The family of this 585-nucleotide part of an RNA from Palmaria palmata is "Eukaryotic large subunit ribosomal RNA". Pairs were carried over by alignment from the consensus structure, which is taken from published work. The organism belongs to Palmaria, within Eukaryota. A reference for the family is Cannone et al. (2002), "The comparative RNA web (CRW) site: an online database of comparative sequence and structure information for ribosomal, intron, and other RNAs", BMC Bioinformatics. Rfam links the family to the GO terms structural constituent of ribosome and ribosome.
RNA sequence: GGAUCUCAAAUCAGACAAGAUGACCCGCUGAAUUUAAGCAUAUAACUAAGCGGAGGAAAAGAAACUAACAAGGAUUCCCCUAGUAGCGGCGAGCGAAGCGGGAACAGCCCAAGAUGAAAAUCCCUUCGGGGAGUUGUAGUCUGAGUGUCCUUGGGUGGGUCAGUGCGGGCAAGUCUUCUGGAAUGAAGCGCCAUGGAGGGUGAGAGCCCCGUCCAUCCCGCACAGGAUCCAUUCGUACAAGGACGCUUCAACCGAGUCGGGUAGCUUGGGAAUGCUGCUCUAAUUGGUGGUAAAUCUCAUCAAAGGCUAAAUAGUGGUGGGAGACCGAUAGCGAACAAGUACCGUGAGGGAAAGAUGGAAAGAACUUUGAAAAGAGAGUGAAAAGCACUUGAAACCGUCACGGGGGAAGCGGAUUGCGUGAGUGAUGGUGUCGCUUGUUCAGCGCUUUAUUGCGUGCAUUCUGGCGGCGCCGUGCCGGCGUGGCUGGCUGGACUGUGAUUUUGACAGUCUCGGCUGGUGAGGGCUCCCUCGUAUGAGGUGAGGACGCGGGCAAAAUGACGCAAUACGACCCGUCUUGAAACACGG
Numbered sequence: 001g002g003a004u005c006u007c008a009a010a011u012c013a014g015a016c017a018a019g020a021u022g023a024c025c026c027g028c029u030g031a032a033u034u035u036a037a038g039c040a041u042a043u044a045a046c047u048a049a050g051c052g053g054a055g056g057a058a059a060a061g062a063a064a065c066u067a068a069c070a071a072g073g074a075u076u077c078c079c080c081u082a083g084u085a086g087c088g089g090c091g092a093g094c095g096a097a098g099c100g101g102g103a104a105c106a107g108c109c110c111a112a113g114a115u116g117a118a119a120a121u122c123c124c125u126u127c128g129g130g131g132a133g134u135u136g137u138a139g140u141c142u143g144a145g146u147g148u149c150c151u152u153g154g155g156u157g158g159g160u161c162a163g164u165g166c167g168g169g170c171a172a173g174u175c176u177u178c179u180g181g182a183a184u185g186a187a188g189c190g191c192c193a194u195g196g197a198g199g200g201u202g203a204g205a206g207c208c209c210c211g212u213c214c215a216u217c218c219c220g221c222a223c224a225g226g227a228u229c230c231a232u233u234c235g236u237a238c239a240a241g242g243a244c245g246c247u248u249c250a251a252c253c254g255a256g257u258c259g260g261g262u263a264g265c266u267u268g269g270g271a272a273u274g275c276u277g278c279u280c281u282a283a284u285u286g287g288u289g290g291u292a293a294a295u296c297u298c299a300u301c302a303a304a305g306g307c308u309a310a311a312u313a314g315u316g317g318u319g320g321g322a323g324a325c326c327g328a329u330a331g332c333g334a335a336c337a338a339g340u341a342c343c344g345u346g347a348g349g350g351a352a353a354g355a356u357g358g359a360a361a362g363a364a365c366u367u368u369g370a371a372a373a374g375a376g377a378g379u380g381a382a383a384a385g386c387a388c389u390u391g392a393a394a395c396c397g398u399c400a401c402g403g404g405g406g407a408a409g410c411g412g413a414u415u416g417c418g419u420g421a422g423u424g425a426u427g428g429u430g431u432c433g434c435u436u437g438u439u440c441a442g443c444g445c446u447u448u449a450u451u452g453c454g455u456g457c458a459u460u461c462u463g464g465c466g467g468c469g470c471c472g473u474g475c476c477g478g479c480g481u482g483g484c485u486g487g488c489u490g491g492a493c494u495g496u497g498a499u500u501u502u503g504a505c506a507g508u509c510u511c512g513g514c515u516g517g518u519g520a521g522g523g524c525u526c527c528c529u530c531g532u533a534u535g536a537g538g539u540g541a542g543g544a545c546g547c548g549g550g551c552a553a554a555a556u557g558a559c560g561c562a563a564u565a566c567g568a569c570c571c572g573u574c575u576u577g578a579a580a581c582a583c584g585g
Stems, first nucleotide, its partner, number of pairs: 024055001025053005035042002065072002076103004086094002106308004113140001115138002118135002121132004143249002145246004150241004155232007163223007173189001175188004192196001199209002259280007285302005342349002365376004410567002413564007421556001426472008476549001478547004570585004